[Rfam]
RNA: Bacterial large subunit ribosomal RNA, nucleotides 9 to 602
RNA sequence: UGCUAAGGGUCCAUGGUGGAUGCCUCGGCAGCCAGAAGGGAUGAAGGGCGUGGCAAGCUGCGAAAAGCCACGGGGAGCCGCAAGCAGGCAAUGAUCCGUGGAUUCCCGAAUGGGGAAACCCACUGUCCUGAAGGGACAGUAUCCCGCGGAAGCGGGAGCCGAACCGGGCGAAGUAAAACCUUUUAGUAGCCCGAGGAAAAGAAAGCGAAAGCGAUUCCCUCAGUAGCGGCGAGCGAACGGGGAGGAGCCCAAACCCAGCGGGUGCCAUGGCGGCAGCCUUAGCCCGCUGGGGGUAGUGGGACGUAUCCGGAGGGGACUGCCGGCCCCUCGGGGAGUUACAAAACCAGUAGGUAGCAGAAGCAGCUGGGAAGCUGCGCCAUAGAGGGUGAAAGCCCCGUAUGCGAAACCUGCUGGUCUCCCUGGGAUACGCUCCCAAGUACCACCGCCCCCGUGAAAGGUGGUGGGAAUCAGCCCGGACCACCGGGUAAGGCUAAAUAUUCCUGGCUGACCGAUAGCGCAAAGUACCGCGAGGGAACGGUGAAAAGAACCCCGGAAGGGGAGUGAAAGAGAACCUGAAACCAUGGACCUACAAGC
Numbered sequence: 001u002g003c004u005a006a007g008g009g010u011c012c013a014u015g016g017u018g019g020a021u022g023c024c025u026c027g028g029c030a031g032c033c034a035g036a037a038g039g040g041a042u043g044a045a046g047g048g049c050g051u052g053g054c055a056a057g058c059u060g061c062g063a064a065a066a067g068c069c070a071c072g073g074g075g076a077g078c079c080g081c082a083a084g085c086a087g088g089c090a091a092u093g094a095u096c097c098g099u100g101g102a103u104u105c106c107c108g109a110a111u112g113g114g115g116a117a118a119c120c121c122a123c124u125g126u127c128c129u130g131a132a133g134g135g136a137c138a139g140u141a142u143c144c145c146g147c148g149g150a151a152g153c154g155g156g157a158g159c160c161g162a163a164c165c166g167g168g169c170g171a172a173g174u175a176a177a178a179c180c181u182u183u184u185a186g187u188a189g190c191c192c193g194a195g196g197a198a199a200a201g202a203a204a205g206c207g208a209a210a211g212c213g214a215u216u217c218c219c220u221c222a223g224u225a226g227c228g229g230c231g232a233g234c235g236a237a238c239g240g241g242g243a244g245g246a247g248c249c250c251a252a253a254c255c256c257a258g259c260g261g262g263u264g265c266c267a268u269g270g271c272g273g274c275a276g277c278c279u280u281a282g283c284c285c286g287c288u289g290g291g292g293g294u295a296g297u298g299g300g301a302c303g304u305a306u307c308c309g310g311a312g313g314g315g316a317c318u319g320c321c322g323g324c325c326c327c328u329c330g331g332g333g334a335g336u337u338a339c340a341a342a343a344c345c346a347g348u349a350g351g352u353a354g355c356a357g358a359a360g361c362a363g364c365u366g367g368g369a370a371g372c373u374g375c376g377c378c379a380u381a382g383a384g385g386g387u388g389a390a391a392g393c394c395c396c397g398u399a400u401g402c403g404a405a406a407c408c409u410g411c412u413g414g415u416c417u418c419c420c421u422g423g424g425a426u427a428c429g430c431u432c433c434c435a436a437g438u439a440c441c442a443c444c445g446c447c448c449c450c451g452u453g454a455a456a457g458g459u460g461g462u463g464g465g466a467a468u469c470a471g472c473c474c475g476g477a478c479c480a481c482c483g484g485g486u487a488a489g490g491c492u493a494a495a496u497a498u499u500c501c502u503g504g505c506u507g508a509c510c511g512a513u514a515g516c517g518c519a520a521a522g523u524a525c526c527g528c529g530a531g532g533g534a535a536c537g538g539u540g541a542a543a544a545g546a547a548c549c550c551c552g553g554a555a556g557g558g559g560a561g562u563g564a565a566a567g568a569g570a571a572c573c574u575g576a577a578a579c580c581a582u583g584g585a586c587c588u589a590c591a592a593g594c
Stems, first nucleotide, its partner, number of pairs: 007588010022573001023538002027510002029507007036499002038160002046107003049062003068101007077089003112121003122140007142157006164195001165193005175182002205212002215495001216243005226234002246492004254291010298434003303428005341417001343415010354402003360375005378382001384396003440464008471486005525532002548559004
Dot-bracket structure: ......((((((((((.....(((..(((((((((((((......((((((........))).....(((((((..(((.......))).....)))))))...)))....(((....)))(((((((.....))))))).((((((....)))))).))...((((((.....((....))......))))).).........((....))..((((((.....((.....))....)))))..((((....((((((((((..................))))))))))......(((..(((((.................................(.((((((((((.(((...(((((......)))))..(...).(((.......)))...)))...)))))))))).)......)))))...))).....((((((((.........))))))))......(((((......)))))..))))..)..)).))))))).))..............((....))....)).........((((....)))).............).....))))))))))......